[Rfam]
RNA sequence: UGAUGCUAAAGGCAAACCAUUCGAAAGGGUGGGACGCAAAGCCUCGGAGCCUGCUACCGAAUUUUCUUCGGAAUGGCCGUCCAGCUGCCAGA
Numbered sequence: 001u002g003a004u005g006c007u008a009a010a011g012g013c014a015a016a017c018c019a020u021u022c023g024a025a026a027g028g029g030u031g032g033g034a035c036g037c038a039a040a041g042c043c044u045c046g047g048a049g050c051c052u053g054c055u056a057c058c059g060a061a062u063u064u065u066c067u068u069c070g071g072a073a074u075g076g077c078c079g080u081c082c083a084g085c086u087g088c089c090a091g092a
Stems, first nucleotide, its partner, number of pairs: 012037002017032006040086003046082003049077003057071004